A member of the RNA family "RpsF leader" from Aggregatibacter segnis, 86 nucleotides long. A search with the family's covariance model found it, with a score of 42 bits. Conserved and widely distributed to many bacterial species RNA structure. It precedes operon containing rpsF, which encodes ribosomal protein S6. The motif also precedes operon containing rpsR, which encodes ribosomal protein S18. The organism belongs to Aggregatibacter segnis, within Bacteria. On this family, see Matelska et al., RNA 2013: "S6:S18 ribosomal protein complex interacts with a structural motif present in its own mRNA". The family's RNA type in Rfam is cis-regulatory leader.

[Rfam]
RNA sequence: GUCACAUCCGAAUUAGUUCCUUGCUUCCACAAGAUUGGUGACUGGUCUUACGUUGGAGGCUGAUUAACCCGUAAGGAGCAGUAAUG
Dot-bracket structure: ...............(((((((((((((..((((((((...)))))))).....))))))............))))))).......